[Rfam]
RNA sequence: GUGUUGCGUUAGGGAUAGUAGUGGCAUCCUUUUUUUGCUGCCAUAAAUGGCAAAAAAAGAUAUAACGGAUAGCGCGACCCUUA
Numbered sequence: 001g002u003g004u005u006g007c008g009u010u011a012g013g014g015a016u017a018g019u020a021g022u023g024g025c026a027u028c029c030u031u032u033u034u035u036u037g038c039u040g041c042c043a044u045a046a047a048u049g050g051c052a053a054a055a056a057a058a059g060a061u062a063u064a065a066c067g068g069a070u071a072g073c074g075c076g077a078c079c080c081u082u083a
Base pairs, nucleotide, nucleotide: 012075014073016071017070021066022065026061027060028059032056033055034054035053036052037051038050039049
Flavo-1 RNA: an 83-nucleotide sequence from Olleya namhaensis. Taxonomically the source falls in Olleya (Bacteria, Pseudomonadati, Bacteroidota, Flavobacteriaceae). Pairs were carried over by alignment from the consensus structure, which is taken from published work.